Guanidine-I riboswitch aptamer: a 169-nucleotide RNA from filamentous cyanobacterium CCP2. A search with the family's covariance model found it, with a score of 74 bits. Rfam links the family to the GO term regulation of gene expression.
RNA sequence: AAAGAAUGCUUCUAGGGUUCCGAUUCAACCGGACGAUCGCCUGUUGCUGUCAGCGAUGUGUUCUGAAGGUUGAGUGUCUGGUCCAAGAGGAGCAAGCUAGCAUUCAAAGAUAGAAUCUUGCCCAUUCAAGAAUUUGCUAGCCACACGGCGGGGGAAAAGCCCGGGAGAA
Dot-bracket structure: ......((((((..((...(((((((((((.....................................))))))))..).)).))....)))))).(((((((................................)))))))..(.[...(((.......))).)..]..